[Rfam]
RNA: PreQ1 (pre queuosine) riboswitch aptamer
RNA sequence: AAUAUAGAGGUUCUAGCAUACCCUCUCUAAAAAAACUAGGAAACA
Numbered sequence: 001a002a003u004a005u006a007g008a009g010g011u012u013c014u015a016g017c018a019u020a021c022c023c024u025c026u027c028u029a030a031a032a033a034a035a036c037u038a039g040g041a042a043a044c045a
Base pairs, nucleotide, nucleotide: 006026007025008024009023010022016037